[Rfam]
RNA sequence: GUAUUCCUUCAGGGCAGGGCGCAAUUCCCUACCGGCGGUGAUCUUACAGGUGGUUAUUAACCUGCAAGUAAGUCCGCGACCCGUUUGUUAUGGAGACCGUUCGCACGGAUCUUUCCAAAUAACCGGUGGACUUGGUGUAAAUCCAAGACCGACAGUAUAGUCUGGAUGAGAGAAGGAGCAU
Numbered sequence: 001g002u003a004u005u006c007c008u009u010c011a012g013g014g015c016a017g018g019g020c021g022c023a024a025u026u027c028c029c030u031a032c033c034g035g036c037g038g039u040g041a042u043c044u045u046a047c048a049g050g051u052g053g054u055u056a057u058u059a060a061c062c063u064g065c066a067a068g069u070a071a072g073u074c075c076g077c078g079a080c081c082c083g084u085u086u087g088u089u090a091u092g093g094a095g096a097c098c099g100u101u102c103g104c105a106c107g108g109a110u111c112u113u114u115c116c117a118a119a120u121a122a123c124c125g126g127u128g129g130a131c132u133u134g135g136u137g138u139a140a141a142u143c144c145a146a147g148a149c150c151g152a153c154a155g156u157a158u159a160g161u162c163u164g165g166a167u168g169a170g171a172g173a174a175g176g177a178g179c180a181u
Stems, first nucleotide, its partner, number of pairs: 004178007017029003031161002033151002035077004072149002081126002131147005153164003